[Rfam]
RNA sequence: GGGCUCCAAGGAAGGAAUGAUGUUCUGAUUGGGUUUCAAGAAAAGGAUCCUGAGCCUCAGAGCUCUGAAAGAGCCACUUAAUCCCUGACCUUCCUGGAGGCAGA
Number, nucleotide and partner (000 for none) at each position: 001g000002g000003g000004c000005u000006c000007c000008a000009a095010g094011g093012a092013a091014g090015g089016a000017a000018u000019g000020a000021u000022g000023u000024u000025c000026u000027g000028a000029u000030u000031g000032g000033g000034u000035u000036u000037c000038a000039a000040g000041a000042a000043a000044a000045g000046g000047a000048u000049c000050c000051u000052g000053a000054g000055c000056c000057u000058c000059a000060g000061a000062g000063c000064u000065c000066u000067g000068a000069a000070a000071g000072a000073g000074c000075c000076a000077c000078u000079u000080a000081a000082u000083c000084c000085c000086u000087g000088a000089c015090c014091u013092u012093c011094c010095u009096g000097g000098a000099g000100g000101c000102a000103g000104a000

Small nucleolar RNA SNORD124: a 104-nucleotide RNA sequence from Echinops telfairi. By type it is a C/D-box small nucleolar RNA. The literature on the family includes a 2006 paper in Nucleic Acids Res by Yang et al., "snoSeeker: an advanced computational package for screening of guide and orphan snoRNA genes in the human genome". The source organism's lineage runs through Eukaryota, Craniata, Gnathostomata, Teleostomi and Echinops. It is one of the family's seed sequences.